[Rfam]
RNA sequence: UGGAGUUAUCAAAUGUAACAGCAACUCCAUGUGGACCAGGUACCGACUUCCAGUGGGGAUGCUGUUACUUUUGAUGGCUAC
Numbered sequence: 001u002g003g004a005g006u007u008a009u010c011a012a013a014u015g016u017a018a019c020a021g022c023a024a025c026u027c028c029a030u031g032u033g034g035a036c037c038a039g040g041u042a043c044c045g046a047c048u049u050c051c052a053g054u055g056g057g058g059a060u061g062c063u064g065u066u067a068c069u070u071u072u073g074a075u076g077g078c079u080a081c
Base pairs, nucleotide, nucleotide: 009074010073011072015068016067017066018065019064020063021062022061025058026057027056028055029054030053032052033051034050
RNA: mir-194 microRNA precursor family
Organism: Loxodonta africana